Source information:
This 146-nucleotide RNA sequence from Cervus hanglu belongs to the Rfam family "U12 minor spliceosomal RNA". The source organism's lineage runs through Eukaryota, Opisthokonta, Teleostomi, Cervinae and Cervus hanglu. On this family, see Tarn and Steitz, Trends Biochem Sci 1997: "Pre-mRNA splicing: the discovery of a new spliceosome doubles the challenge". It scores 79 bits against the family's covariance model. Its Rfam clan is "U2 clan". The base pairs follow the family's consensus structure.

[Rfam]
RNA sequence: AUGUUUUAAACUCCUGAGUAAGGAAAAUUAUGAUUGAGGGUGACACUGAAUCCUCACAACUAACGUGAGGUGAGUUUUUGUGUGGGUGAAGGCUGCCCCUGAGGGGACCUGCCGACUCCGCAGGGCGCCUGGGUGAAGGCUGCCCC
Number, nucleotide and partner (000 for none) at each position: 001a000002u000003g000004u023005u022006u021007u020008a019009a000010a000011c000012u000013c000014c000015u000016g000017a000018g000019u008020a007021a006022g005023g004024a000025a000026a000027a000028u000029u000030a000031u000032g052033a051034u050035u049036g000037a000038g047039g046040g000041u000042g000043a000044c000045a000046c039047u038048g000049a035050a034051u033052c032053c069054u068055c067056a066057c065058a000059a000060c000061u000062a000063a000064c000065g057066u056067g055068a054069g053070g000071u000072g000073a000074g000075u000076u000077u000078u000079u000080g000081u000082g000083u000084g000085g000086g146087u000088g000089a000090a000091g144092g143093c142094u000095g140096c139097c138098c000099c133100u132101g000102a130103g129104g128105g000106g126107a000108c124109c123110u122111g121112c120113c000114g000115a000116c000117u000118c000119c000120g112121c111122a110123g109124g108125g000126c106127g000128c104129c103130u102131g000132g100133g099134u000135g000136a000137a000138g097139g096140c095141u000142g093143c092144c091145c000146c086